RNA sequence: UCCACUGCGAUACUGAGAUCUGAAGGAACCGGAGGCAAAAAGCACGGGCCAAAGGACACGAACUGGAUUUCAGGCUGUGCAGUAAGAUGGGUCAUCGAAACAUGGCGAAAUCCAAAGCCGCCGAGGGCUGGCAAGGUAAACUCCAGUGGUCGCGGCAUCAGAUGACGUG
Numbered sequence: 001u002c003c004a005c006u007g008c009g010a011u012a013c014u015g016a017g018a019u020c021u022g023a024a025g026g027a028a029c030c031g032g033a034g035g036c037a038a039a040a041a042g043c044a045c046g047g048g049c050c051a052a053a054g055g056a057c058a059c060g061a062a063c064u065g066g067a068u069u070u071c072a073g074g075c076u077g078u079g080c081a082g083u084a085a086g087a088u089g090g091g092u093c094a095u096c097g098a099a100a101c102a103u104g105g106c107g108a109a110a111u112c113c114a115a116a117g118c119c120g121c122c123g124a125g126g127g128c129u130g131g132c133a134a135g136g137u138a139a140a141c142u143c144c145a146g147u148g149g150u151c152g153c154g155g156c157a158u159c160a161g162a163u164g165a166c167g168u169g
Stems, first nucleotide, its partner, number of pairs: 001017001003015002006012001032168001036164002041158001045154002047151005063146005068140001074137003078133003082129001086112003091106004
This 169-nucleotide RNA sequence from Paenibacillus wynnii belongs to the Rfam family "Group II catalytic intron D1-D4-3". The match comes from Rfam's covariance-model search (59 bits). NCBI's taxonomy places the organism under Bacteria, Bacillati, Bacilli, Caryophanales, Paenibacillus. For this family Rfam cites "The ins and outs of group II introns" (Bonen and Vogel, Trends Genet, 2001).